[Rfam]
RNA: Small nucleolar RNA snoR26
Organism: Cucumis melo
RNA sequence: GUGGCAUCGAUGAUGAAACAAUCUAUUUUGUUAUCCUUGCACUUUGAUUUACAGUGAAGAAAAUCAUGGGGAAUAUUGUUCCUGAGAUGCAU
Numbered sequence: 001g002u003g004g005c006a007u008c009g010a011u012g013a014u015g016a017a018a019c020a021a022u023c024u025a026u027u028u029u030g031u032u033a034u035c036c037u038u039g040c041a042c043u044u045u046g047a048u049u050u051a052c053a054g055u056g057a058a059g060a061a062a063a064u065c066a067u068g069g070g071g072a073a074u075a076u077u078g079u080u081c082c083u084g085a086g087a088u089g090c091a092u
Base pairs, nucleotide, nucleotide: 004090005089006088007087008086